[Rfam]
RNA: mir-320 microRNA precursor family
RNA sequence: UAUAUAAGAGGCCUUCUCUUCUCGGGUCUUUCUGGAGUCAGGAAAAGCUGGGUUGAGAGGGUGUAAAAAAAAAAAG
Numbered sequence: 001u002a003u004a005u006a007a008g009a010g011g012c013c014u015u016c017u018c019u020u021c022u023c024g025g026g027u028c029u030u031u032c033u034g035g036a037g038u039c040a041g042g043a044a045a046a047g048c049u050g051g052g053u054u055g056a057g058a059g060g061g062u063g064u065a066a067a068a069a070a071a072a073a074a075a076g
Base pairs, nucleotide, nucleotide: 014059015058016057017056018055021052022051023050024049025048029044030043031042032041033040034039